[Rfam]
RNA sequence: GACUAAGUGCAUAUGGUGGAUGCCUUGGCGAUAUCAGGCGAUGAAGGACGUAGUAGCUUGCGAAAAGCUGCGGGGAGCCAGCAAACAGGCUGUGAUCCGCAGAUGUCCGAAUGGGGAAACCCGGCCGUAAGGUCAUUGCAACCUGAAUACAUAGGGUUGCAAAGCGAACGUGGAGAACUGAAACAUCUAAGUACCCACAGGAAAAGAAAUCAACCGAGAUUCCCAAAGUAGUGGCGAGCGAAAUGGGAAGAGCCGCAAGAGAUAGCCAUGUGAUUACUGGAACGGAAUGGAAAGUCCGGCCAUAGCGGGUGAUAGCCCCGUACAGGAAAAUCAUGUGGUGGUACUAAGCUUGCACCAAGUAGGGCGGGACACGAGAAAUCCUGUCUGAAGAUGGGGGGACCAUCCUCCAAGGCUAAAUACUCGAUAUCGACCGAUAGUGAACCAGUACCGUGAGGGAAAGGCGAAAAGAACCCCGGAAGGGGAGUGAAAUAGAACCUGAAACCGUAUGCAUACAAA
Numbered sequence: 001g002a003c004u005a006a007g008u009g010c011a012u013a014u015g016g017u018g019g020a021u022g023c024c025u026u027g028g029c030g031a032u033a034u035c036a037g038g039c040g041a042u043g044a045a046g047g048a049c050g051u052a053g054u055a056g057c058u059u060g061c062g063a064a065a066a067g068c069u070g071c072g073g074g075g076a077g078c079c080a081g082c083a084a085a086c087a088g089g090c091u092g093u094g095a096u097c098c099g100c101a102g103a104u105g106u107c108c109g110a111a112u113g114g115g116g117a118a119a120c121c122c123g124g125c126c127g128u129a130a131g132g133u134c135a136u137u138g139c140a141a142c143c144u145g146a147a148u149a150c151a152u153a154g155g156g157u158u159g160c161a162a163a164g165c166g167a168a169c170g171u172g173g174a175g176a177a178c179u180g181a182a183a184c185a186u187c188u189a190a191g192u193a194c195c196c197a198c199a200g201g202a203a204a205a206g207a208a209a210u211c212a213a214c215c216g217a218g219a220u221u222c223c224c225a226a227a228g229u230a231g232u233g234g235c236g237a238g239c240g241a242a243a244u245g246g247g248a249a250g251a252g253c254c255g256c257a258a259g260a261g262a263u264a265g266c267c268a269u270g271u272g273a274u275u276a277c278u279g280g281a282a283c284g285g286a287a288u289g290g291a292a293a294g295u296c297c298g299g300c301c302a303u304a305g306c307g308g309g310u311g312a313u314a315g316c317c318c319c320g321u322a323c324a325g326g327a328a329a330a331u332c333a334u335g336u337g338g339u340g341g342u343a344c345u346a347a348g349c350u351u352g353c354a355c356c357a358a359g360u361a362g363g364g365c366g367g368g369a370c371a372c373g374a375g376a377a378a379u380c381c382u383g384u385c386u387g388a389a390g391a392u393g394g395g396g397g398g399a400c401c402a403u404c405c406u407c408c409a410a411g412g413c414u415a416a417a418u419a420c421u422c423g424a425u426a427u428c429g430a431c432c433g434a435u436a437g438u439g440a441a442c443c444a445g446u447a448c449c450g451u452g453a454g455g456g457a458a459a460g461g462c463g464a465a466a467a468g469a470a471c472c473c474c475g476g477a478a479g480g481g482g483a484g485u486g487a488a489a490u491a492g493a494a495c496c497u498g499a500a501a502c503c504g505u506a507u508g509c510a511u512a513c514a515a516a
Stems, first nucleotide, its partner, number of pairs: 007511010022496001023461002027432002029429007036421002038165002046108003049062003068102007077090003113122003123134004136162009169200001170198004180187002210217002220417001221248005231239002251414004259349001263341001265339011277325003283298004301305001307319003362386008393408005448455002471482004
Background: The family of this 516-nucleotide part of an RNA is "Bacterial large subunit ribosomal RNA". On this family, see Yusupov et al., Science 2001: "Crystal structure of the ribosome at 5.5 A resolution".